Notes: The record is a 73-nucleotide RNA from Candidatus Saccharibacteria bacterium RAAC3_TM7_1, which matches "tRNA" in Rfam. The base pairs follow the family's consensus structure, which is taken from published work. It is annotated as a transfer RNA. Taxonomically the source falls in Candidatus Saccharimonadota (Bacteria, Bacteria candidate phyla).
RNA sequence: GCGGGUUUAGCUCAGUUGUUAGAGCGCUUCCUUGCCAUGGAAGAGGCCAGGAGUUAGAGUCUCCUAACCCGCA
Numbered sequence: 001g002c003g004g005g006u007u008u009a010g011c012u013c014a015g016u017u018g019u020u021a022g023a024g025c026g027c028u029u030c031c032u033u034g035c036c037a038u039g040g041a042a043g044a045g046g047c048c049a050g051g052a053g054u055u056a057g058a059g060u061c062u063c064c065u066a067a068c069c070c071g072c073a
Base pairs, nucleotide, nucleotide: 001072002071003070004069005068006067007066010025011024012023013022027043028042029041030040031039049065050064051063052062053061